[Rfam]
RNA: mir-29 microRNA precursor family
RNA sequence: GGCUGACCGAUCUCUCUUGGUGUUCAGAGUUUUUUGUUUUUGUCUAGCACCAUUUGAAAUCGGUUAUGA
Numbered sequence: 001g002g003c004u005g006a007c008c009g010a011u012c013u014c015u016c017u018u019g020g021u022g023u024u025c026a027g028a029g030u031u032u033u034u035u036g037u038u039u040u041u042g043u044c045u046a047g048c049a050c051c052a053u054u055u056g057a058a059a060u061c062g063g064u065u066a067u068g069a
Stems, first nucleotide, its partner, number of pairs: 004066001005064001007063005013057002018052005026045003
Dot-bracket structure: ...((.(((((.((...(((((...(((..............)))..)))))...)).)))))).)...